[Rfam]
RNA sequence: AUCGAAGAAUUAUCUAGCAAGUAAUUCGUAUGCCGCCAUAGCAUUUCAUGAUGUAGCUGGAGUACAGGAUGACCGACCCAUAAGCAUGAAUAUAAGUCUCGAAU
Numbered sequence: 001a002u003c004g005a006a007g008a009a010u011u012a013u014c015u016a017g018c019a020a021g022u023a024a025u026u027c028g029u030a031u032g033c034c035g036c037c038a039u040a041g042c043a044u045u046u047c048a049u050g051a052u053g054u055a056g057c058u059g060g061a062g063u064a065c066a067g068g069a070u071g072a073c074c075g076a077c078c079c080a081u082a083a084g085c086a087u088g089a090a091u092a093u094a095a096g097u098c099u100c101g102a103a104u
Base pairs, nucleotide, nucleotide: 002076007027008026009025010024011023012022013021039101040099041098042096045090046089047088048087049086050085058080059079060078063075067074068073